[Rfam]
Background:
Rfam assigns this 169-nucleotide RNA sequence to the family "c-di-AMP riboswitch aptamer (ydaO/yuaA leader)".
RNA sequence: GGGCGGCCUCCGCCGAGUCCGGCGCCCCUCGCGGAGCCGGAGCCGGGGACCCACCGACCUUGGGGUGAAUCGGCCCACCUGCCGCACACGGCAAGGGCCGUAGGGCACACCUUCCAAUGCACGCGCCCGAACCCGACAGCUAACUCGGUAGGCGGACAACGGAAGGAGC
Numbered sequence: 001g002g003g004c005g006g007c008c009u010c011c012g013c014c015g016a017g018u019c020c021g022g023c024g025c026c027c028c029u030c031g032c033g034g035a036g037c038c039g040g041a042g043c044c045g046g047g048g049a050c051c052c053a054c055c056g057a058c059c060u061u062g063g064g065g066u067g068a069a070u071c072g073g074c075c076c077a078c079c080u081g082c083c084g085c086a087c088a089c090g091g092c093a094a095g096g097g098c099c100g101u102a103g104g105g106c107a108c109a110c111c112u113u114c115c116a117a118u119g120c121a122c123g124c125g126c127c128c129g130a131a132c133c134c135g136a137c138a139g140c141u142a143a144c145u146c147g148g149u150a151g152g153c154g155g156a157c158a159a160c161g162g163a164a165g166g167a168g169c
Stems, first nucleotide, its partner, number of pairs: 011154004018041006042149006052062002063134003071100006103128004
Annotation:
The match comes from Rfam's covariance-model search (59 bits).